[Rfam]
RNA sequence: ACUGGCUGAGAUGACGCACUUGCCCUCACUGAGGCAAUUCAUUGAUGAGAGCUCUUGAUUGUACUCAUCUGUUCUGAGCCAGU
Dot-bracket structure: ((((((.......................................................................))))))
Small nucleolar RNA SNORD103/SNORD85: an 83-nucleotide sequence from Vombatus ursinus. Pairs were carried over by alignment from the consensus structure. Gene Ontology terms of the family: RNA processing and nucleolus. The organism belongs to Vombatus, within Eukaryota. Rfam classes the family as a C/D-box small nucleolar RNA.